Shown here is a 114-nucleotide RNA from Nothobranchius furzeri, a member of the family "Potassium channel RNA editing signal". The family's RNA type in Rfam is cis-regulatory element. Gene Ontology term of the family: adenosine to inosine editing. NCBI's taxonomy places the organism under Eukaryota, Euacanthomorphacea, Percomorphaceae, Atherinomorphae, Nothobranchius. The match comes from Rfam's covariance-model search (100 bits).
[Rfam]
RNA sequence: UUGGGCUACGGGGACAUGUAUCCAAAGACAUGGCUGGGCAUGAUGGUAGGGGCUCUGUGCGCGCUGGCUGGCGUGCUGACCAUCGCCAUGCCCGUUCCUGUCAUCGUCAACAAC
Numbered sequence: 001u002u003g004g005g006c007u008a009c010g011g012g013g014a015c016a017u018g019u020a021u022c023c024a025a026a027g028a029c030a031u032g033g034c035u036g037g038g039c040a041u042g043a044u045g046g047u048a049g050g051g052g053c054u055c056u057g058u059g060c061g062c063g064c065u066g067g068c069u070g071g072c073g074u075g076c077u078g079a080c081c082a083u084c085g086c087c088a089u090g091c092c093c094g095u096u097c098c099u100g101u102c103a104u105c106g107u108c109a110a111c112a113a114c
Base pairs, nucleotide, nucleotide: 002113004111008107009106010105011104013102014101015100016099018097020095021094037077038076039075040074050062

Rfam describes the family as follows. This family represents a group of sequences related to the human potassium channel Kv1.1 hairpin element which directs the efficient modification of an adenosine to inosine by an adenosine deaminase acting on RNA (ADAR).